Shown here is a 75-nucleotide sequence from Streptomyces halstedii, a member of the family "ASpks TB sRNA". It is one of the family's seed sequences. The base pairs follow the family's consensus structure, which is taken from published work. The source organism's lineage runs through Bacteria, Bacillati, Actinomycetota, Streptomycetaceae and Streptomyces. By type it is an antisense RNA.
RNA sequence: CUUGAUCGAGCCCAGCCUCAGCGGCCGAUCCUCGGGACGAUCCUGACCGUAGGUGGCAAGCAGCGCCUGAGCCUC
Dot-bracket structure: ..............(((.....))).....(((....((...((..(((....)))..))...))...)))....